MIR1120/MIR1122 microRNA precursor family: an 87-nucleotide RNA sequence from Triticum urartu. Its family is annotated with miRNA-mediated post-transcriptional gene silencing and RISC complex in the Gene Ontology. The match comes from Rfam's covariance-model search (88 bits).

[Rfam]
RNA sequence: CUACUCCCUCUGUCCCAUAAUAUAAGACAUUUCUGCAACCUAACAUAGGUUGCAAAAAUGUCUUAUAUUAUGGAACGGAGGGAGUAC
Numbered sequence: 001c002u003a004c005u006c007c008c009u010c011u012g013u014c015c016c017a018u019a020a021u022a023u024a025a026g027a028c029a030u031u032u033c034u035g036c037a038a039c040c041u042a043a044c045a046u047a048g049g050u051u052g053c054a055a056a057a058a059u060g061u062c063u064u065a066u067a068u069u070a071u072g073g074a075a076c077g078g079a080g081g082g083a084g085u086a087c
Stems, first nucleotide, its partner, number of pairs: 003085003007081005013075001015073003019069014034054008